[Rfam]
Rfam assigns this 98-nucleotide RNA sequence from Acetatifactor muris to the family "TPP riboswitch aptamer (THI element)". A search with the family's covariance model found it, with a score of 63 bits.
RNA sequence: UAGCAAAAGCAGGGGGACUAUAUGUAGUUGAGAAGGUAAAACCUGACCCUUUGAACCUGUUGGCUAAUACCAACGCAGGGAGCUAAAUGAUACGGUAU
Numbered sequence: 001u002a003g004c005a006a007a008a009g010c011a012g013g014g015g016g017a018c019u020a021u022a023u024g025u026a027g028u029u030g031a032g033a034a035g036g037u038a039a040a041a042c043c044u045g046a047c048c049c050u051u052u053g054a055a056c057c058u059g060u061u062g063g064c065u066a067a068u069a070c071c072a073a074c075g076c077a078g079g080g081a082g083c084u085a086a087a088u089g090a091u092a093c094g095g096u097a098u
Stems, first nucleotide, its partner, number of pairs: 008084003011050004016044001017028004035043003056079004060073004